[Rfam]
RNA sequence: GGAGUGGUAUCGUAAAGCUUGGUGACCCUAGCUGCUCCUGAAAUGGAGCGGGAUAGAUUGAAAUCGGGGCCCAGGGUGAGCCGCUUU
Numbered sequence: 001g002g003a004g005u006g007g008u009a010u011c012g013u014a015a016a017g018c019u020u021g022g023u024g025a026c027c028c029u030a031g032c033u034g035c036u037c038c039u040g041a042a043a044u045g046g047a048g049c050g051g052g053a054u055a056g057a058u059u060g061a062a063a064u065c066g067g068g069g070c071c072c073a074g075g076g077u078g079a080g081c082c083g084c085u086u087u
Stems, first nucleotide, its partner, number of pairs: 001087007010079003018075005026069003033050006
Shown here is an 87-nucleotide sequence, a member of the family "DUF3800-III RNA".
It is annotated as a small RNA.